[Rfam]
RNA sequence: AGUUUCAAGUUUGAGGCCAUAGCAGAAGUGCUUAAUGAUGCUGCCCUGACAGAUUCCAACAAAUCUGCGAAUUCUGGU
Numbered sequence: 001a002g003u004u005u006c007a008a009g010u011u012u013g014a015g016g017c018c019a020u021a022g023c024a025g026a027a028g029u030g031c032u033u034a035a036u037g038a039u040g041c042u043g044c045c046c047u048g049a050c051a052g053a054u055u056c057c058a059a060c061a062a063a064u065c066u067g068c069g070a071a072u073u074c075u076g077g078u
Base pairs, nucleotide, nucleotide: 013046015045016044017043021078023076024075025074026073027072028041029040030039050067051066052065053064054063055062